RNA sequence: AUGCGGGGACGACCUCGCAUUUCCCGAAUCCGGUUGGGACGGCCCGC
Number, nucleotide and partner (000 for none) at each position: 001a020002u019003g018004c017005g016006g015007g014008g013009a000010c000011g000012a000013c008014c007015u006016c005017g004018c003019a002020u001021u000022u000023c000024c000025c000026g000027a000028a000029u000030c000031c000032g000033g000034u000035u046036g045037g044038g043039a000040c000041g000042g000043c038044c037045c036046g035047c000